[Rfam]
Nucleotides: 090
Stems, first nucleotide, its partner, number of pairs: 008083006020030003032070003035066002039064003045057002
Number, partner (000 for none) and nucleotide at each position: 001000g002000g003000a004000u005000g006000a007000a008083c009082c010081c011080u012079u013078g014000g015000a016000g017000a018000g019000a020030c021029u022028c023000u024000u025000a026000a027000a028022g029021a030020g031000c032070a033069c034068c035066g036065a037000a038000g039064g040063a041062g042000a043000a044000a045057g046056c047000a048000u049000a050000a051000a052000a053000a054000a055000a056046g057045c058000g059000a060000a061000a062041c063040u064039c065036u066035c067000a068034g069033g070032u071000a072000a073000a074000a075000g076000g077000a078013c079012a080011g081010g082009g083008g084000a085000c086000a087000g088000a089000u090000a

Source information:
Shown here is a 90-nucleotide RNA from Clostridium acetobutylicum, a member of the family "Glycine riboswitch aptamer". The match comes from Rfam's covariance-model search (66 bits). Rfam 15.1 lists 9,425 matches to the family in 5,228 species. The organism belongs to Clostridium acetobutylicum, within Bacteria.